[Rfam]
RNA: skipping-rope RNA
RNA sequence: UGAAAUAGAGGUAGAAAAGGUUCUCUACACGCUUAGAUGCGUUAGGCAUAUGUCUUAUCUAAGUUACCAGAGAUGUGGGGAGGAAUGGAAUUUUCCACUCGUCAAUGCCGUCCCACCUAUUUCA
Number, nucleotide and partner (000 for none) at each position: 001u124002g123003a122004a121005a120006u119007a118008g117009a000010g000011g028012u027013a026014g025015a024016a000017a000018a000019g109020g108021u107022u000023c000024u015025c014026u013027a012028c011029a000030c070031g064032c063033u062034u061035a060036g059037a058038u057039g056040c000041g000042u000043u000044a000045g000046g000047c000048a000049u000050a000051u000052g000053u000054c000055u000056u039057a038058u037059c036060u035061a034062a033063g032064u031065u000066a000067c000068c000069a000070g030071a000072g000073a000074u000075g116076u115077g114078g113079g112080g000081a000082g000083g000084a000085a000086u000087g000088g000089a000090a000091u000092u000093u000094u000095c000096c000097a000098c000099u000100c000101g000102u000103c000104a000105a000106u000107g021108c020109c019110g000111u000112c079113c078114c077115a076116c075117c008118u007119a006120u005121u004122u003123c002124a001